[Rfam]
RNA: Glycine riboswitch aptamer
Organism: Meridianimarinicoccus roseus
Nucleotides: 076
Stems, first nucleotide, its partner, number of pairs: 003070001005068005016031004033056003036052002040050002
Number, partner (000 for none) and nucleotide at each position: 001000g002000a003070c004000a005068c006067u007066c008065u009064g010000g011000a012000g013000a014000g015000u016031g017030g018029c019028g020000c021000c022000a023000c024000c025000u026000g027000g028019c029018g030017c031016c032000c033056g034055c035054c036052g037051a038000a039000g040050g041049g042000a043000u044000a045000a046000u047000g048000a049041u050040c051037u052036c053000a054035g055034g056033c057000g058000c059000a060000c061000g062000g063000a064009c065008a066007g067006a068005g069000g070003g071000g072000g073000c074000a075000u076000c